radC RNA: a 149-nucleotide RNA from Plasticicumulans lactativorans. Rfam classes the family as a cis-regulatory element. The family's consensus secondary structure is taken from published work.
[Rfam]
RNA sequence: AGGUUGAUGCCAUGUUCUGCUGACUCCCCUCAGCAACAUGCCCAGGUAGCCAUGAUCCCCGAGGCUACGGCGCGGUUCCGGCCGCGUUGAUCACACCAGUUCGCACCGACAUCCAAGCGCGAACGGCCAUCGCCUGUCGAUGGCGAUGU
Numbered sequence: 001a002g003g004u005u006g007a008u009g010c011c012a013u014g015u016u017c018u019g020c021u022g023a024c025u026c027c028c029c030u031c032a033g034c035a036a037c038a039u040g041c042c043c044a045g046g047u048a049g050c051c052a053u054g055a056u057c058c059c060c061g062a063g064g065c066u067a068c069g070g071c072g073c074g075g076u077u078c079c080g081g082c083c084g085c086g087u088u089g090a091u092c093a094c095a096c097c098a099g100u101u102c103g104c105a106c107c108g109a110c111a112u113c114c115a116a117g118c119g120c121g122a123a124c125g126g127c128c129a130u131c132g133c134c135u136g137u138c139g140a141u142g143g144c145g146a147u148g149u
Base pairs, nucleotide, nucleotide: 011040012039013038014037016035019034020033021032022031023030046068047067048066049065050064051063054092055091056090057089069088070087071086072085073084074083075082119149120148121147126144127143128142129141130140131139132138